S10-Clostridia ribosomal protein leader: an 81-nucleotide sequence. Rfam classes the family as a cis-regulatory leader. The sequence is in the family's curated seed alignment.

RNA sequence: UGAUAGCGUAGAAGCGGAGGUUGCUGUAUAUAAUACAGGUUAUUUCGUGGAGCGAAUGUCAAUUUACAAAACUGACGACAA
Numbered sequence: 001u002g003a004u005a006g007c008g009u010a011g012a013a014g015c016g017g018a019g020g021u022u023g024c025u026g027u028a029u030a031u032a033a034u035a036c037a038g039g040u041u042a043u044u045u046c047g048u049g050g051a052g053c054g055a056a057u058g059u060c061a062a063u064u065u066a067c068a069a070a071a072c073u074g075a076c077g078a079c080a081a
Base pairs, nucleotide, nucleotide: 014048015047016046017045018044019043020041024038025037026036027035028034057080058079059078060077064075065074066073